Shown here is a 78-nucleotide sequence from Callorhinchus milii, a member of the family "mir-17 microRNA precursor family".
It scores 70 bits against the family's covariance model.
RNA sequence: AGUGCAGUACCAAAGUGCUCAUAGUGCAGGUAGUAGCAAUGAAAUCUACUGUAAUGUGAGCACUUACAGUAAUGCCAG
Numbered sequence: 001a002g003u004g005c006a007g008u009a010c011c012a013a014a015g016u017g018c019u020c021a022u023a024g025u026g027c028a029g030g031u032a033g034u035a036g037c038a039a040u041g042a043a044a045u046c047u048a049c050u051g052u053a054a055u056g057u058g059a060g061c062a063c064u065u066a067c068a069g070u071a072a073u074g075c076c077a078g
Stems, first nucleotide, its partner, number of pairs: 004075003009070002013065011025053003029050005

Background:
About the family: This family represents the microRNA (miRNA) precursor mir-17, family, which includes mir-20, mir-91, and mir-103. miRNAs are transcribed as ~70nt precursors (modelled here) and subsequently processed by the Dicer enzyme to give a ~22nt product. In this case the mature sequence comes from the 3' arm of the precursor. The extents of the hairpin precursors are not generally known and are estimated based on hairpin prediction. Rfam links the family to the GO terms miRNA-mediated post-transcriptional gene silencing and RISC complex. The literature on the family includes a 2001 paper in Cell by Ambros, "microRNAs: tiny regulators with great potential". The family has 234 seed sequences and 4,687 matches in Rfam 15.1.